[Rfam]
RNA: Editing element of GABA-3 exon 9
Organism: Myotis myotis
RNA sequence: AAGGUGUCCUACGCCACCUCCAUGGACUGGUUCAUCGCCGUGUGCUACGGCUUC
Number, nucleotide and partner (000 for none) at each position: 001a000002a053003g052004g000005u000006g051007u050008c049009c000010u047011a046012c000013g045014c044015c042016a041017c040018c000019u000020c037021c000022a035023u034024g033025g032026a031027c000028u000029g000030g000031u026032u025033c024034a023035u022036c000037g020038c000039c000040g017041u016042g015043u000044g014045c013046u011047a010048c000049g008050g007051c006052u003053u002054c000